The record is a 134-nucleotide RNA from Baekduia soli, which matches "c-di-AMP riboswitch aptamer (ydaO/yuaA leader)" in Rfam. The source organism's lineage runs through Bacteria, Bacillati, Thermoleophilia, Baekduiaceae and Baekduia. Gene Ontology terms of the family: regulation of gene expression and cyclic-di-AMP binding.

Nucleotides: 134
Base pairs, nucleotide, nucleotide: 011119012118013117014116018034019033020032021031022030035114036113037112038111039110040109045054055099056098057097063080064079065078066077083093084092085091086090
Number, partner (000 for none) and nucleotide at each position: 001000c002000g003000u004000g005000c006000c007000c008000g009000a010000a011119c012118g013117c014116c015000g016000a017000g018034u019033c020032c021031c022030g023000g024000a025000c026000c027000g028000u029000c030022c031021g032020g033019g034018a035114g036113c037112g038111g039110g040109g041000g042000a043000a044000c045054c046000a047000a048000g049000u050000c051000u052000c053000g054045g055099g056098g057097g058000c059000g060000a061000g062000u063080c064079c065078c066077a067000c068000g069000g070000u071000g072000a073000u074000c075000c076000g077066u078065g079064g080063g081000a082000g083093g084092c085091g086090c087000a088000c089000u090086g091085c092084g093083c094000u095000a096000g097057c098056c099055c100000g101000u102000c103000a104000g105000c106000u107000a108000a109040c110039c111038c112037c113036g114035u115000a116014g117013g118012c119011g120000c121000u122000g123000a124000c125000c126000a127000c128000a129000g130000c131000a132000g133000g134000u
A search with the family's covariance model found it, with a score of 66 bits.